A member of the RNA family "S4-Flavobacteria ribosomal protein leader" from Clarias magur, 50 nucleotides long. The family's consensus secondary structure is taken from published work. The source organism's lineage runs through Eukaryota, Metazoa, Vertebrata, Actinopteri and Clarias. Its Rfam clan is "Ribosomal Protein S4 Leader clan".
RNA sequence: AAUUAUUAAAGGAAAAGACAUUAAACUUCACUUGACCUUAAUUUAUAAUU
Numbered sequence: 001a002a003u004u005a006u007u008a009a010a011g012g013a014a015a016a017g018a019c020a021u022u023a024a025a026c027u028u029c030a031c032u033u034g035a036c037c038u039u040a041a042u043u044u045a046u047a048a049u050u
Base pairs, nucleotide, nucleotide: 001050002049003048004047005046006045008044009039010038011037012036